[Rfam]
RNA sequence: GGCUUAAAGGGUCCGUAGGCGGCUCGGCACGUCCUGGGUCAAAGCCCUCCGCUCAACGGAGGAACGGCUUAGGAUACGGCCGAGCUAGAGUCAGUCUGGGGGCGCUGGAAUUCCCGGUGUAGCGGUGAAAUGCGUAGAUAUCGGGAGGAACACCGUUCGCGAAGGCGGGCGCCUAAGGCUGUACUGACGCUGAGGGACGAAAGCGUGGGGAGCAAACAGGAUUAGAUACCCUGGUAGUCCACGCCCUAAACGAUGCGCACUAGUCGGACGCCCGAAAGGGUGUCUGGCGAAGGGAAACCGUUAAGUGCGCCGCCUGGGGAGUACGCUCGCAAGGGUGAAACUCAAAGGAAU
Numbered sequence: 001g002g003c004u005u006a007a008a009g010g011g012u013c014c015g016u017a018g019g020c021g022g023c024u025c026g027g028c029a030c031g032u033c034c035u036g037g038g039u040c041a042a043a044g045c046c047c048u049c050c051g052c053u054c055a056a057c058g059g060a061g062g063a064a065c066g067g068c069u070u071a072g073g074a075u076a077c078g079g080c081c082g083a084g085c086u087a088g089a090g091u092c093a094g095u096c097u098g099g100g101g102g103c104g105c106u107g108g109a110a111u112u113c114c115c116g117g118u119g120u121a122g123c124g125g126u127g128a129a130a131u132g133c134g135u136a137g138a139u140a141u142c143g144g145g146a147g148g149a150a151c152a153c154c155g156u157u158c159g160c161g162a163a164g165g166c167g168g169g170c171g172c173c174u175a176a177g178g179c180u181g182u183a184c185u186g187a188c189g190c191u192g193a194g195g196g197a198c199g200a201a202a203g204c205g206u207g208g209g210g211a212g213c214a215a216a217c218a219g220g221a222u223u224a225g226a227u228a229c230c231c232u233g234g235u236a237g238u239c240c241a242c243g244c245c246c247u248a249a250a251c252g253a254u255g256c257g258c259a260c261u262a263g264u265c266g267g268a269c270g271c272c273c274g275a276a277a278g279g280g281u282g283u284c285u286g287g288c289g290a291a292g293g294g295a296a297a298c299c300g301u302u303a304a305g306u307g308c309g310c311c312g313c314c315u316g317g318g319g320a321g322u323a324c325g326c327u328c329g330c331a332a333g334g335g336u337g338a339a340a341c342u343c344a345a346a347g348g349a350a351u
Base pairs, nucleotide, nucleotide: 001314002313003312009311011198012197013196014195016192018191019190020189022085023084024083025082026081027080028079030078031077032074033073034072035071036070037069038068039067040066046062047061048060049059050058051057089185090184091183092181093180094179095178096177097176100174101173102172103171104170105169106168107151111147112146113145114144115143116142117141118140122133123132124131156167159166160165203244204243205242206241207240208239212238213237217233218232219231220230255310256309257308258307259306260305263288264287265286266285267284268283269282270281271280272279273278292299293298316343317342318341325336326335327334328333

About this RNA
Shown here is a 351-nucleotide part of an RNA from an uncultured bacterium, a member of the family "Bacterial small subunit ribosomal RNA". Pairs were carried over by alignment from the consensus structure, which is taken from published work. The family is grouped with related families in Rfam's "SSU clan". The literature on the family includes a 2002 paper in BMC Bioinformatics by Cannone et al., "The comparative RNA web (CRW) site: an online database of comparative sequence and structure information for ribosomal, intron, and other RNAs".